This 102-nucleotide sequence from Natronincola ferrireducens belongs to the Rfam family "Purine riboswitch aptamer". Taxonomically the source falls in Natronincola (Bacteria, Bacillati, Bacillota, Clostridia). It scores 79 bits against the family's covariance model. Its Rfam clan is "Purine riboswitches". The family's consensus secondary structure is taken from published work.
[Rfam]
RNA sequence: GCUACUUGACAAUAGAAAACUCAUAUAGUGUCGAUAAUAGGGUUCGACAGUUUCUACAGGAUGACCGUAAAUCAUUCUACUAUGGGUGAAAGUGUACCUAGG
Numbered sequence: 001g002c003u004a005c006u007u008g009a010c011a012a013u014a015g016a017a018a019a020c021u022c023a024u025a026u027a028g029u030g031u032c033g034a035u036a037a038u039a040g041g042g043u044u045c046g047a048c049a050g051u052u053u054c055u056a057c058a059g060g061a062u063g064a065c066c067g068u069a070a071a072u073c074a075u076u077c078u079a080c081u082a083u084g085g086g087u088g089a090a091a092g093u094g095u096a097c098c099u100a101g102g
Stems, first nucleotide, its partner, number of pairs: 019087007029049006058078007